RNA sequence: AAAUCAAGCUAGGGGUGUCUGAUAAGCCAGGCUGAGAUAGUCCCUUAGAACCUGAGACUGGGUAAUACCAGCGUAGGAAAGCUGUGAUUAGAGGUA
Numbered sequence: 001a002a003a004u005c006a007a008g009c010u011a012g013g014g015g016u017g018u019c020u021g022a023u024a025a026g027c028c029a030g031g032c033u034g035a036g037a038u039a040g041u042c043c044c045u046u047a048g049a050a051c052c053u054g055a056g057a058c059u060g061g062g063u064a065a066u067a068c069c070a071g072c073g074u075a076g077g078a079a080a081g082c083u084g085u086g087a088u089u090a091g092a093g094g095u096a
Stems, first nucleotide, its partner, number of pairs: 007083004011045004016039001017032005051077004058071004